[Rfam]
RNA sequence: GGCCCUUCGUGUUCACAGUGGACCUUGAUUUCAUGUGGACACAAUUAAGGCACGCGGUGAAUGCCAAGAGCC
Numbered sequence: 001g002g003c004c005c006u007u008c009g010u011g012u013u014c015a016c017a018g019u020g021g022a023c024c025u026u027g028a029u030u031u032c033a034u035g036u037g038g039a040c041a042c043a044a045u046u047a048a049g050g051c052a053c054g055c056g057g058u059g060a061a062u063g064c065c066a067a068g069a070g071c072c
Base pairs, nucleotide, nucleotide: 003070005068006067009064010063011062012061013060014059015058016057018055019054020053023050024049025048026047027046028045029044030043
Annotation: This 72-nucleotide RNA sequence from Anolis carolinensis belongs to the Rfam family "mir-124 microRNA precursor family". Gene Ontology terms of the family: RISC complex and miRNA-mediated post-transcriptional gene silencing. The family's consensus secondary structure was predicted with PFOLD. For this family Rfam cites "The microRNAs of Caenorhabditis elegans" (Lim et al., Genes Dev, 2003).